[Rfam]
RNA sequence: CGUCAAUGAUGACAAAUCUAAGGCUUGUUUCUCAAAACAUUCGCAGUGGCCGCCUGAGAGCUUUCGCCUUGACGGACUUGAGAGCUUGUGCUGCUCAAUUCUUCCUUGGAUGUCUGAGUUC
Numbered sequence: 001c002g003u004c005a006a007u008g009a010u011g012a013c014a015a016a017u018c019u020a021a022g023g024c025u026u027g028u029u030u031c032u033c034a035a036a037a038c039a040u041u042c043g044c045a046g047u048g049g050c051c052g053c054c055u056g057a058g059a060g061c062u063u064u065c066g067c068c069u070u071g072a073c074g075g076a077c078u079u080g081a082g083a084g085c086u087u088g089u090g091c092u093g094c095u096c097a098a099u100u101c102u103u104c105c106u107u108g109g110a111u112g113u114c115u116g117a118g119u120u121c
Base pairs, nucleotide, nucleotide: 002120004118060085061084062083063082064081065080
Shown here is a 121-nucleotide RNA from Musa acuminata, a member of the family "Small nucleolar RNA SNORD14". U14 small nucleolar RNA (U14 snoRNA) is required for early cleavages of eukaryotic precursor rRNAs. The source organism's lineage runs through Eukaryota, Streptophytina, Embryophyta, Euphyllophyta and Musa acuminata. A search with the family's covariance model found it, with a score of 77 bits. On this family, see Samarsky et al., Nucleic Acids Res 1996: "An essential domain in Saccharomyces cerevisiae U14 snoRNA is absent in vertebrates, but conserved in other yeasts". Pairs were carried over by alignment from the consensus structure, which was predicted with PFOLD.